[Rfam]
RNA: Selenocysteine transfer RNA
Organism: Campylobacter gracilis
Nucleotides: 093
Stems, first nucleotide, its partner, number of pairs: 001091006009025004014021002028042004046067007070084004
Number, partner (000 for none) and nucleotide at each position: 001091g002090a003089g004088a005087g006086g007000a008000u009025g010024g011023c012022g013000a014021c015020c016000u017000g018000g019000u020015g021014g022012c023011g024010u025009c026000u027000g028042c029041g030040g031039a032000c033000u034000u035000c036000a037000a038000a039031u040030c041029c042028g043000a044000u045000a046067g047066g048065a049064g050063g051062g052061c053000g054000g055000u056000u057000g058000a059000c060000c061052g062051u063050u064049u065048u066047c067046c068000g069000g070084g071083g072082g073081g074000u075000u076000c077000g078000a079000u080000u081073c082072c083071c084070u085000c086006c087005c088004u089003c090002u091001c092000u093000c